A member of the RNA family "M-box riboswitch aptamer (ykoK leader)" from Lentilactobacillus curieae, 166 nucleotides long. The family has 159 seed sequences and 1,095 matches in Rfam 15.1. Gene Ontology terms of the family: regulation of gene expression and response to magnesium ion. A search with the family's covariance model found it, with a score of 143 bits. About the family: M-box riboswitch, also know as ykoK leader is described as a metaloregulatory RNA that sense divalent metals and function as a genetic control element of genes related to divalent metal transport in bacteria. It was first reported upstream of the B.subtilis ykoK gene and genes with related functions in other bacteria. Lineage of the source: Bacteria > Bacillota > Bacilli > Lactobacillales > Lentilactobacillus.

RNA sequence: UAAUACGGCUGUUAGGUGAGGCUCCUAUACAGAAAAUGCUACUGCUCAGAAACGUCGAAAAACGCCAAUGAGUCAGCUGUUCAAGUCAAAAUAAGGCUUGAACUAACGUAGCUGUUAAUUAUUAACUACGCUGUAUAGUGCUAAAACUCAACGAUUGGCUGACAAU
Numbered sequence: 001u002a003a004u005a006c007g008g009c010u011g012u013u014a015g016g017u018g019a020g021g022c023u024c025c026u027a028u029a030c031a032g033a034a035a036a037u038g039c040u041a042c043u044g045c046u047c048a049g050a051a052a053c054g055u056c057g058a059a060a061a062a063c064g065c066c067a068a069u070g071a072g073u074c075a076g077c078u079g080u081u082c083a084a085g086u087c088a089a090a091a092u093a094a095g096g097c098u099u100g101a102a103c104u105a106a107c108g109u110a111g112c113u114g115u116u117a118a119u120u121a122u123u124a125a126c127u128a129c130g131c132u133g134u135a136u137a138g139u140g141c142u143a144a145a146a147c148u149c150a151a152c153g154a155u156u157g158g159c160u161g162a163c164a165a166u
Stems, first nucleotide, its partner, number of pairs: 006161005011152002013094001015148003020142003025138008038112005044073005053064003079103004085097003114126003